[Rfam]
RNA sequence: AGUGACCCUGUUUUAGUUGUCAUGGUAACUGAUACAAUCCUCCUAUAUUAAAUAGCACAAUGAGAACAGUUUCCAAUUUAUUAGUCUUACUUGGAAUCUACAUUGUUGUGUACAGAA
Number, nucleotide and partner (000 for none) at each position: 001a030002g029003u028004g000005a026006c025007c024008c000009u022010g021011u000012u000013u000014u000015a000016g000017u000018u000019g000020u000021c010022a009023u000024g007025g006026u005027a000028a003029c002030u001031g000032a000033u000034a000035c000036a000037a000038u000039c000040c000041u000042c000043c000044u000045a000046u000047a000048u000049u000050a000051a000052a000053u000054a000055g000056c000057a000058c110059a000060a000061u000062g000063a000064g000065a000066a000067c000068a000069g098070u000071u096072u095073c094074c093075a092076a091077u000078u089079u000080a087081u000082u000083a000084g000085u000086c000087u080088u000089a078090c000091u076092u075093g074094g073095a072096a071097u000098c069099u000100a000101c000102a000103u000104u000105g000106u000107u000108g000109u000110g058111u000112a000113c000114a000115g000116a000117a000
The family of this 117-nucleotide RNA sequence from Lottia gigantea is "Small nucleolar RNA snoR104". Its family is annotated with nucleolus and RNA processing in the Gene Ontology. A reference for the family is Marker et al. (2002), "Experimental RNomics: identification of 140 candidates for small non-messenger RNAs in the plant Arabidopsis thaliana", Curr Biol. The base pairs follow the family's consensus structure, which was predicted with WAR. It scores 47 bits against the family's covariance model.